[Rfam]
RNA sequence: CGUGCUCGGCCUGCUGGGGCGCGAGCAGGUGGACGUGCGGGUCGAUGGCGCCCGGCGUGGCGAUCAUGUUCUCGCCCGCCAGCACCUCGGUGCCGGCGCCGACGAUCAGACGGCGGUCCACGCCGUUCUGCGUGUGCGGGUUGCCCGCCUUGCCGAUGCCGACGAUCCGGCCGUCCUUGACCCCGAUGUCGCCUUUGACGACGCCGAGCACCGGGUCGAGCACGACGACGUUGGUGAUCACCAGGUCGAGCGCGAUCGUGACGUUCCUGGAGCCGGGAUCGGCCGCCAUGCCGUCGCGGGCG
Numbered sequence: 001c002g003u004g005c006u007c008g009g010c011c012u013g014c015u016g017g018g019g020c021g022c023g024a025g026c027a028g029g030u031g032g033a034c035g036u037g038c039g040g041g042u043c044g045a046u047g048g049c050g051c052c053c054g055g056c057g058u059g060g061c062g063a064u065c066a067u068g069u070u071c072u073c074g075c076c077c078g079c080c081a082g083c084a085c086c087u088c089g090g091u092g093c094c095g096g097c098g099c100c101g102a103c104g105a106u107c108a109g110a111c112g113g114c115g116g117u118c119c120a121c122g123c124c125g126u127u128c129u130g131c132g133u134g135u136g137c138g139g140g141u142u143g144c145c146c147g148c149c150u151u152g153c154c155g156a157u158g159c160c161g162a163c164g165a166u167c168c169g170g171c172c173g174u175c176c177u178u179g180a181c182c183c184c185g186a187u188g189u190c191g192c193c194u195u196u197g198a199c200g201a202c203g204c205c206g207a208g209c210a211c212c213g214g215g216u217c218g219a220g221c222a223c224g225a226c227g228a229c230g231u232u233g234g235u236g237a238u239c240a241c242c243a244g245g246u247c248g249a250g251c252g253c254g255a256u257c258g259u260g261a262c263g264u265u266c267c268u269g270g271a272g273c274c275g276g277g278a279u280c281g282g283c284c285g286c287c288a289u290g291c292c293g294u295c296g297c298g299g300g301c302g
Stems, first nucleotide, its partner, number of pairs: 001302003005298001007296003012164002015161003018076004023071001031052002034050002038047002057069003078153001081150002085147001090144003094140001097136003104131001109127003113123002170283004176277004181272001183270002190230002193227001195225002205218002233267002239260002244257004
Dot-bracket structure: (((.(.(((..((.(((((((.(.......((.((..((......)).))))....(((.......))).).)))).(..((..(....(((.(..(((....(....(((.((.......)).)))...)..)))...).)))..).))..).....))).)).....((((..((((.(.((.....((.(.((........((..........)).....)).).))..((....((...((((......)))).)).....)).)).).))))..))))..........))).).)))
RNA: 5' ureB small RNA
Organism: Sphaerisporangium krabiense